Shown here is a 116-nucleotide RNA from Sesamum indicum, a member of the family "Small nucleolar RNA snoR104".
By type it is an H/ACA-box small nucleolar RNA.
[Rfam]
RNA sequence: GAGGAGCAUCUGGAAGCUGUGAUGCUACCUGAUAGAACCUUCCUAGAAUGAAUCUUGUAUUUUCAUUUUCUUCCAGUGCCUGAGUAAGCUCUGCAAGUCAAUGAUGAGGUACAUAA
Numbered sequence: 001g002a003g004g005a006g007c008a009u010c011u012g013g014a015a016g017c018u019g020u021g022a023u024g025c026u027a028c029c030u031g032a033u034a035g036a037a038c039c040u041u042c043c044u045a046g047a048a049u050g051a052a053u054c055u056u057g058u059a060u061u062u063u064c065a066u067u068u069u070c071u072u073c074c075a076g077u078g079c080c081u082g083a084g085u086a087a088g089c090u091c092u093g094c095a096a097g098u099c100a101a102u103g104a105u106g107a108g109g110u111a112c113a114u115a116a
Stems, first nucleotide, its partner, number of pairs: 001030001003028001005026006056109001058107001070097003074093003078089002